[Rfam]
RNA sequence: AUGCUUUAAACUUACGAGUUAAGAAAAAAAAAUGAUGGCAUGAUGUCUAAAUUCUCACUGCUAAUGUGAGACAAAUUUUUGAGCUAGUAAAGGUUUCUGCUAAGAUGACCCAUCUAACUUGUGGGAUGUCUAGGAGUCUUAAUCUGCUGU
Dot-bracket structure: ...(((.(..........).)))........(...(((........)))...)(((((.......)))))..............((((..(((((....((.(((((.(((((.......))))).))))).))......))))))))).
This 150-nucleotide RNA sequence from Gulo gulo belongs to the Rfam family "U12 minor spliceosomal RNA". The source organism's lineage runs through Eukaryota, Euteleostomi, Caniformia, Guloninae and Gulo. A search with the family's covariance model found it, with a score of 86 bits. The pairing is the family consensus, mapped onto this sequence. For this family Rfam cites "Pre-mRNA splicing: the discovery of a new spliceosome doubles the challenge" (Tarn and Steitz, Trends Biochem Sci, 1997). The family's RNA type in Rfam is spliceosomal small nuclear RNA.